[Rfam]
A member of the RNA family "Flavo-1 RNA" from Tenacibaculum todarodis, 84 nucleotides long.
RNA sequence: GCUUAGCCCUGAUUAAAGCAUUUGUUUGAGCUCUUUUUAUUCUUUUUCGGAAUAAAAAAGCGAGUGCGGAAAGCAGGAAUAGCU
Numbered sequence: 001g002c003u004u005a006g007c008c009c010u011g012a013u014u015a016a017a018g019c020a021u022u023u024g025u026u027u028g029a030g031c032u033c034u035u036u037u038u039a040u041u042c043u044u045u046u047u048c049g050g051a052a053u054a055a056a057a058a059a060g061c062g063a064g065u066g067c068g069g070a071a072a073g074c075a076g077g078a079a080u081a082g083c084u
Stems, first nucleotide, its partner, number of pairs: 009076003013072002018067002030061003036056008
The match comes from Rfam's covariance-model search (42 bits).